[Rfam]
RNA sequence: GGGUCAAUGAUGACAACAGAAAGUCAAGAAUAGGUUGAUGACAUAAAAAUCAUGCUCAAUAAGAUGACGCUGAGGUCC
Number, nucleotide and partner (000 for none) at each position: 001g078002g077003g076004u075005c072006a071007a000008u069009g068010a000011u000012g000013a000014c000015a000016a000017c000018a000019g000020a000021a000022a000023g000024u000025c000026a000027a000028g000029a000030a000031u000032a000033g000034g000035u000036u000037g000038a000039u000040g000041a000042c000043a000044u000045a000046a000047a000048a000049a000050u000051c000052a000053u000054g000055c000056u000057c000058a000059a000060u000061a000062a000063g000064a000065u000066g000067a000068c009069g008070c000071u006072g005073a000074g000075g004076u003077c002078c001
RNA: Small nucleolar RNA SNORD115
Organism: Rattus norvegicus